[Rfam]
RNA sequence: GCGGGGGACCCACCUCGCAGGACCAGGCCUCCGGGCCUUGGGGUGAAGCCGCAGCACGCGGCCGGGCAUCUCUCGCCCGAACCCGACAGCUAACUCCGC
Dot-bracket structure: ((((((....((..........................))(((.....((((.....))))..((((.......))))...))).........))))))
c-di-AMP riboswitch aptamer (ydaO/yuaA leader): a 99-nucleotide RNA sequence from Modestobacter caceresii. Pairs were carried over by alignment from the consensus structure.